[Rfam]
Overview
A member of the RNA family "Bacterial RNase P class A" from Caldanaerobacter subterraneus, 355 nucleotides long. The family's RNA type in Rfam is ribozyme. It is one of the family's seed sequences.

RNA sequence: UGAGUAAGUCGGAUGGCCGCGGGCGAGGCAUUUGCCUCGCACGAGGAAAGUCCGAGCUCCACAGGGCAGGGUGCCGGGUAACACCCGGUGGAGGCGACUCCAAGGAAAGUGCCACAGAAAUGUAGACCGCCUGACGCUUUCAAAGGCGUCGGGUAAGGGUGCAACGGUGCGGUAAGAGCGCACCAGCAGCCGGGCGACCGGCUGGCUAGGUAAACCCCACCCGGAGCAAGGCAAAUAGGAGGGAGUAGGUGGCCCGCCAUUUCCCUCGGGUUAAGCCGCUAGAGGUAUCAGGCAACUGAUACCCUAGAUAGAUGGCCAUCUAAAACAGAACUCGGCUUACGGACUUGCUCACAUG
Numbered sequence: 001u002g003a004g005u006a007a008g009u010c011g012g013a014u015g016g017c018c019g020c021g022g023g024c025g026a027g028g029c030a031u032u033u034g035c036c037u038c039g040c041a042c043g044a045g046g047a048a049a050g051u052c053c054g055a056g057c058u059c060c061a062c063a064g065g066g067c068a069g070g071g072u073g074c075c076g077g078g079u080a081a082c083a084c085c086c087g088g089u090g091g092a093g094g095c096g097a098c099u100c101c102a103a104g105g106a107a108a109g110u111g112c113c114a115c116a117g118a119a120a121u122g123u124a125g126a127c128c129g130c131c132u133g134a135c136g137c138u139u140u141c142a143a144a145g146g147c148g149u150c151g152g153g154u155a156a157g158g159g160u161g162c163a164a165c166g167g168u169g170c171g172g173u174a175a176g177a178g179c180g181c182a183c184c185a186g187c188a189g190c191c192g193g194g195c196g197a198c199c200g201g202c203u204g205g206c207u208a209g210g211u212a213a214a215c216c217c218c219a220c221c222c223g224g225a226g227c228a229a230g231g232c233a234a235a236u237a238g239g240a241g242g243g244a245g246u247a248g249g250u251g252g253c254c255c256g257c258c259a260u261u262u263c264c265c266u267c268g269g270g271u272u273a274a275g276c277c278g279c280u281a282g283a284g285g286u287a288u289c290a291g292g293c294a295a296c297u298g299a300u301a302c303c304c305u306a307g308a309u310a311g312a313u314g315g316c317c318a319u320c321u322a323a324a325a326c327a328g329a330a331c332u333c334g335g336c337u338u339a340c341g342g343a344c345u346u347g348c349u350c351a352c353a354u355g
Base pairs, nucleotide, nucleotide: 001351002350003349004348005347006346007345008344009343010342011340012320013319014318015317016316017315018314020043021042023040024039025038026037027036028035048338049337050336052335053334054333055332056331057226058225059224060223064255065254069222070221071220072219073218074088075087076086077085078084089103090101091100092099093098104217105216109215110214111211112210113209127158128157129154130153131152132151133150134149135148136147137146138145139144166184167183168182169181170180171179186206187204188203189202190201191200192199193198230277231276232275239267240266241265242264243263244262249260250259251258252257284303285302286301287300288299289298290297291296